[Rfam]
RNA: tRNA
RNA sequence: AAGGAGUUAGUUAAAAUAUAACAUUAGAAUGUCAAUCUAAAAUAACUAAAAAUAGUACACCUUG
Numbered sequence: 001a002a003g004g005a006g007u008u009a010g011u012u013a014a015a016a017u018a019u020a021a022c023a024u025u026a027g028a029a030u031g032u033c034a035a036u037c038u039a040a041a042a043u044a045a046c047u048a049a050a051a052a053u054a055g056u057a058c059a060c061c062u063u064g
Stems, first nucleotide, its partner, number of pairs: 001063004006058002010022004024040005045056004
Dot-bracket structure: ((((.((..((((.....)))).(((((.......)))))....((((....)))))).)))).